Rfam assigns this 206-nucleotide sequence from Stutzerimonas nosocomialis to the family "PhrS".
The match comes from Rfam's covariance-model search (164 bits).
The base pairs follow the family's consensus structure, which was predicted with CMfinder.
The family's RNA type in Rfam is small RNA.
Gene Ontology term of the family: quorum sensing.
RNA sequence: AUCGAAACAUUGCAACCGCAGGAGAACGGGAUAUGUACGUCGAUGAGGUGGUACUCGCAGGGGUGGUCACGGUCGGCUUGAUGUUCGCCUUCUUCGGUGGCAUCGGUUAUUUCAUCUGGCAGGACUCGCGCAAGAAGCAAGGUUGAUCCUGCCCGAUACACAGAGCACGCAAGGCAUUUAGGCGACUUCGGUCGCCUUUUUUUUCG
Number, nucleotide and partner (000 for none) at each position: 001a000002u000003c000004g000005a000006a000007a000008c000009a000010u099011u000012g000013c096014a000015a000016c000017c000018g000019c000020a000021g000022g000023a000024g000025a000026a000027c000028g000029g000030g000031a000032u000033a000034u000035g000036u000037a000038c000039g000040u000041c000042g000043a000044u000045g000046a000047g000048g058049u057050g056051g000052u000053a000054c000055u000056c050057g049058c048059a000060g000061g000062g000063g000064u000065g000066g000067u000068c000069a000070c000071g000072g000073u000074c000075g086076g085077c000078u083079u000080g000081a000082u000083g078084u000085u076086c075087g000088c000089c000090u000091u000092c000093u000094u000095c000096g013097g000098u000099g010100g000101c000102a000103u000104c000105g000106g000107u000108u000109a000110u000111u000112u000113c000114a000115u000116c000117u000118g000119g000120c000121a000122g000123g000124a000125c000126u000127c000128g000129c000130g000131c000132a000133a000134g000135a000136a000137g000138c000139a000140a000141g000142g000143u000144u000145g000146a000147u000148c000149c000150u000151g000152c000153c000154c000155g000156a000157u000158a000159c000160a000161c000162a000163g000164a000165g175166c174167a000168c173169g000170c000171a000172a000173g168174g166175c165176a000177u000178u000179u000180a197181g196182g195183c194184g193185a192186c191187u000188u000189c000190g000191g186192u185193c184194g183195c182196c181197u180198u000199u000200u000201u000202u000203u000204u000205c000206g000